[Rfam]
RNA: Small nucleolar RNA snR48
Organism: Naumovozyma dairenensis
RNA sequence: UUAUAAUGAUGAAUUUUUUGUUAUUGCAUUUUUCUGGCAUCUCUAAUGUUAGGGUGAGGCGUUUAAGUACGAUCCACUCGAUGAAUACACCAUUGACUACAUCUCUGAAA
Numbered sequence: 001u002u003a004u005a006a007u008g009a010u011g012a013a014u015u016u017u018u019u020g021u022u023a024u025u026g027c028a029u030u031u032u033u034c035u036g037g038c039a040u041c042u043c044u045a046a047u048g049u050u051a052g053g054g055u056g057a058g059g060c061g062u063u064u065a066a067g068u069a070c071g072a073u074c075c076a077c078u079c080g081a082u083g084a085a086u087a088c089a090c091c092a093u094u095g096a097c098u099a100c101a102u103c104u105c106u107g108a109a110a
Stems, first nucleotide, its partner, number of pairs: 053078004